[Rfam]
RNA sequence: GCCCCUGAUGAUGAUUGAAACAUUUCUACUGAGAUCUCCAUGCGGAAAAUUUUUGGAGACCUGAACUGAAGGGAC
Numbered sequence: 001g002c003c004c005c006u007g008a009u010g011a012u013g014a015u016u017g018a019a020a021c022a023u024u025u026c027u028a029c030u031g032a033g034a035u036c037u038c039c040a041u042g043c044g045g046a047a048a049a050u051u052u053u054u055g056g057a058g059a060c061c062u063g064a065a066c067u068g069a070a071g072g073g074a075c
Stems, first nucleotide, its partner, number of pairs: 003073004
This 75-nucleotide RNA sequence from Rosa chinensis belongs to the Rfam family "Small nucleolar RNA Z159/U59". The literature on the family includes a 2003 paper in Nucleic Acids Res by Chen et al., "The high diversity of snoRNAs in plants: identification and comparative study of 120 snoRNA genes from Oryza sativa". Its Rfam clan is "SNORD59 clan". The family has 10 seed sequences and 1,401 matches in Rfam 15.1.